[Rfam]
RNA sequence: UUGGUCAUCAUUUUUGUGAUUGGUGCAAUUGCGGCCAUGAAUCGCGAUUUUAAUUGCAUAGUCACAAAAGUGAUGGCUAU
Numbered sequence: 001u002u003g004g005u006c007a008u009c010a011u012u013u014u015u016g017u018g019a020u021u022g023g024u025g026c027a028a029u030u031g032c033g034g035c036c037a038u039g040a041a042u043c044g045c046g047a048u049u050u051u052a053a054u055u056g057c058a059u060a061g062u063c064a065c066a067a068a069a070g071u072g073a074u075g076g077c078u079a080u
Base pairs, nucleotide, nucleotide: 002079003078004077005076006075008073009072010071011070012069013068014067015066016065017064018063019062020061024058025057026056027055028054029053030052

The record is an 80-nucleotide RNA from Oppiella nova, which matches "mir-153 microRNA precursor family" in Rfam. Taxonomically the source falls in Oppiella (Eukaryota, Opisthokonta, Sarcoptiformes, Brachypylina).